[Rfam]
RNA sequence: UACACACGGAAAGACUCAUGGGACGGUUAUCUCGACGAUUUGGCUAUCGAUUUGGCUGCCGACACUUGACGACUACCAUGUUAAUGACGGUGCGGUUUCUUAUGGAGGGCUGAACAAGUCCGCCAUGACUUGCUGGUUUGGACUGUGAGAGUGGUGGUUGGGUGUCUCAAGUAUCCUCUGGGGGUGUCCGUGUCCGUUCCGGGGGAAGAAGGGUGUUUUUGGACCAAACUCGUUGAAAACCAAUGCUUUUGCUGCCCUUGGAUUUCGGGGGAUGGUAGUUGUGGAUUUCUAGGGAAGAGAACCAAAGGUCGGGACCCAUCUUGAGUUGGAGUCAAAGUUUCGUACUUGUCUGGCCUUUGGACCCCCUCUUCCUUGGUCUUCACUCCUGGCCUAGUCUGUGUCCUUGCGGAGGCUGGCUUUGCUGUUUGAGGUUUUGGUCCUUUAGGACAGGGGACUGCCUUCCUGGAAAGUGGUCUCCGGUUGUUCCUCGUUCCUGGAAGAUGGCGGGAGGAACAACCCCUCACAUUUUUUGAGG
Numbered sequence: 001u002a003c004a005c006a007c008g009g010a011a012a013g014a015c016u017c018a019u020g021g022g023a024c025g026g027u028u029a030u031c032u033c034g035a036c037g038a039u040u041u042g043g044c045u046a047u048c049g050a051u052u053u054g055g056c057u058g059c060c061g062a063c064a065c066u067u068g069a070c071g072a073c074u075a076c077c078a079u080g081u082u083a084a085u086g087a088c089g090g091u092g093c094g095g096u097u098u099c100u101u102a103u104g105g106a107g108g109g110c111u112g113a114a115c116a117a118g119u120c121c122g123c124c125a126u127g128a129c130u131u132g133c134u135g136g137u138u139u140g141g142a143c144u145g146u147g148a149g150a151g152u153g154g155u156g157g158u159u160g161g162g163u164g165u166c167u168c169a170a171g172u173a174u175c176c177u178c179u180g181g182g183g184g185u186g187u188c189c190g191u192g193u194c195c196g197u198u199c200c201g202g203g204g205g206a207a208g209a210a211g212g213g214u215g216u217u218u219u220u221g222g223a224c225c226a227a228a229c230u231c232g233u234u235g236a237a238a239a240c241c242a243a244u245g246c247u248u249u250u251g252c253u254g255c256c257c258u259u260g261g262a263u264u265u266c267g268g269g270g271g272a273u274g275g276u277a278g279u280u281g282u283g284g285a286u287u288u289c290u291a292g293g294g295a296a297g298a299g300a301a302c303c304a305a306a307g308g309u310c311g312g313g314a315c316c317c318a319u320c321u322u323g324a325g326u327u328g329g330a331g332u333c334a335a336a337g338u339u340u341c342g343u344a345c346u347u348g349u350c351u352g353g354c355c356u357u358u359g360g361a362c363c364c365c366c367u368c369u370u371c372c373u374u375g376g377u378c379u380u381c382a383c384u385c386c387u388g389g390c391c392u393a394g395u396c397u398g399u400g401u402c403c404u405u406g407c408g409g410a411g412g413c414u415g416g417c418u419u420u421g422c423u424g425u426u427u428g429a430g431g432u433u434u435u436g437g438u439c440c441u442u443u444a445g446g447a448c449a450g451g452g453g454a455c456u457g458c459c460u461u462c463c464u465g466g467a468a469a470g471u472g473g474u475c476u477c478c479g480g481u482u483g484u485u486c487c488u489c490g491u492u493c494c495u496g497g498a499a500g501a502u503g504g505c506g507g508g509a510g511g512a513a514c515a516a517c518c519c520c521u522c523a524c525a526u527u528u529u530u531u532g533a534g535g
Base pairs, nucleotide, nucleotide: 313333314332315331316329317328318327335347336346337345338344

The record is a 535-nucleotide part of an RNA from Neurospora crassa, which matches "Ascomycota telomerase RNA" in Rfam. The pairing is the family consensus, mapped onto this sequence. Clan: Telomerase clan. For this family Rfam cites "The common ancestral core of vertebrate and fungal telomerase RNAs" (Qi et al., Nucleic Acids Res, 2013). Rfam classes the family as a non-coding RNA gene. Its family is annotated with telomere maintenance via telomerase, telomerase activity and telomerase catalytic core complex in the Gene Ontology.